Source information
The family of this 101-nucleotide RNA sequence from Pandoraea thiooxydans is "SAH (S-adenosyl-L-homocysteine) riboswitch aptamer". The organism belongs to Pandoraea, within Bacteria. The base pairs follow the family's consensus structure, which is taken from published work.
RNA sequence: UGUCUUGAGGAGCGUUGCAACGGCCCCCGCGCCGCCAGGCUCAAGGCAGUGUUCCCGUCGGCCGCCUGCGCGGCCGUACACCGCAACGGCGCUCACGUCUU
Number, nucleotide and partner (000 for none) at each position: 001u000002g047003u046004c045005u044006u043007g042008a041009g000010g000011a000012g000013c000014g000015u000016u000017g000018c000019a000020a000021c034022g033023g032024c031025c000026c000027c000028c000029g000030c000031g024032c023033c022034g021035c000036c000037a000038g000039g000040c000041u008042c007043a006044a005045g004046g003047c002048a000049g000050u000051g000052u000053u000054c000055c000056c000057g000058u000059c000060g000061g000062c000063c000064g000065c000066c000067u000068g000069c000070g000071c000072g000073g000074c000075c000076g000077u000078a000079c000080a000081c000082c000083g000084c000085a000086a000087c000088g000089g000090c000091g000092c000093u000094c000095a000096c000097g000098u000099c000100u000101u000